[Rfam]
RNA sequence: GUGGUUAUCCCCAAGCAUGUUAAACCUAACGCCCUAAACUCACUAAAACGUAUAUGAAGAUGUAUACUACGAGUUGUGUAUUUAUAUACAAAUGACAUAGUAAAAGUUCUAUGUUAAUUAUAAGAAGGAAAGGAGGUAAGAUAGGAAUAAGGAAUAAGAAUACUAUCUCAUGCUUUUA
Numbered sequence: 001g002u003g004g005u006u007a008u009c010c011c012c013a014a015g016c017a018u019g020u021u022a023a024a025c026c027u028a029a030c031g032c033c034c035u036a037a038a039c040u041c042a043c044u045a046a047a048a049c050g051u052a053u054a055u056g057a058a059g060a061u062g063u064a065u066a067c068u069a070c071g072a073g074u075u076g077u078g079u080a081u082u083u084a085u086a087u088a089c090a091a092a093u094g095a096c097a098u099a100g101u102a103a104a105a106g107u108u109c110u111a112u113g114u115u116a117a118u119u120a121u122a123a124g125a126a127g128g129a130a131a132g133g134a135g136g137u138a139a140g141a142u143a144g145g146a147a148u149a150a151g152g153a154a155u156a157a158g159a160a161u162a163c164u165a166u167c168u169c170a171u172g173c174u175u176u177u178a
Stems, first nucleotide, its partner, number of pairs: 013175007024137004038079002050067006084093002095114005139168006
RNA: RAGATH-9 RNA